The record is a 71-nucleotide sequence, which matches "tRNA" in Rfam.
RNA sequence: GCACCAGUGGUCUAGUGGUAGAAUAGUACCCUGCCACGGUACAGACCCGGGUUCGAUUCCCGGCUGGUGCA
Numbered sequence: 001g002c003a004c005c006a007g008u009g010g011u012c013u014a015g016u017g018g019u020a021g022a023a024u025a026g027u028a029c030c031c032u033g034c035c036a037c038g039g040u041a042c043a044g045a046c047c048c049g050g051g052u053u054c055g056a057u058u059c060c061c062g063g064c065u066g067g068u069g070c071a
Stems, first nucleotide, its partner, number of pairs: 001070007010024002013021001026042005047063005
Rfam classes the family as a transfer RNA. Pairs were carried over by alignment from the consensus structure, which is taken from published work. Rfam's curators put it in the seed alignment.